[Rfam]
RNA sequence: CCCUCGGAGUGCUAUACAAACCAAAGUAGCUAUGGCAAAAUGGAGUACAUUGAACAGGGAA
Numbered sequence: 001c002c003c004u005c006g007g008a009g010u011g012c013u014a015u016a017c018a019a020a021c022c023a024a025a026g027u028a029g030c031u032a033u034g035g036c037a038a039a040a041u042g043g044a045g046u047a048c049a050u051u052g053a054a055c056a057g058g059g060a061a
Stems, first nucleotide, its partner, number of pairs: 001059004009048005021043003029036002
Notes:
This 61-nucleotide RNA sequence from Clostridium tetani belongs to the Rfam family "RAGATH-18 RNA". Rfam describes the family as follows. Actinobacteria, Firmicutes, Fusobacteria, Thermotogae (1 example). The base pairs follow the family's consensus structure, which is taken from published work. The source organism's lineage runs through Bacteria, Bacillota, Clostridia, Eubacteriales and Clostridium tetani. The family's RNA type in Rfam is small RNA. The sequence is in the family's curated seed alignment.